[Rfam]
RNA sequence: AGACGGUGCCUUUUAGGCAUCCUCUCCCAAACUUUUUAGGCCCGGUCGGCGACGACUGGGCCUUUUUUCUUGCCCGC
Numbered sequence: 001a002g003a004c005g006g007u008g009c010c011u012u013u014u015a016g017g018c019a020u021c022c023u024c025u026c027c028c029a030a031a032c033u034u035u036u037u038a039g040g041c042c043c044g045g046u047c048g049g050c051g052a053c054g055a056c057u058g059g060g061c062c063u064u065u066u067u068u069c070u071u072g073c074c075c076g077c
Stems, first nucleotide, its partner, number of pairs: 008018004039062009